[Rfam]
RNA sequence: CUCUACCUUCGUGGUCAGAUGUUAUAAACUCAAGGGUUUAUAUCCAGUACAGAAGGGUAAAGGAUCUUGUUUCCGUUGCGAUAGCAAAAAAAUACUAUUUAGCACAAGCCGAGAGUAUCGAUAUUGAGAAAUCCGCAGUGCUU
Dot-bracket structure: ..(..((((....((.....(.((((((((....)))))))).)....))..)))))...................(((....)))..............(((((..((.((.....((......))....)).)).)))).)
Numbered sequence: 001c002u003c004u005a006c007c008u009u010c011g012u013g014g015u016c017a018g019a020u021g022u023u024a025u026a027a028a029c030u031c032a033a034g035g036g037u038u039u040a041u042a043u044c045c046a047g048u049a050c051a052g053a054a055g056g057g058u059a060a061a062g063g064a065u066c067u068u069g070u071u072u073c074c075g076u077u078g079c080g081a082u083a084g085c086a087a088a089a090a091a092a093u094a095c096u097a098u099u100u101a102g103c104a105c106a107a108g109c110c111g112a113g114a115g116u117a118u119c120g121a122u123a124u125u126g127a128g129a130a131a132u133c134c135g136c137a138g139u140g141c142u143u
Stems, first nucleotide, its partner, number of pairs: 003057001006056004014050002021044001023042008077086003101143001102141004108136002111133002118127002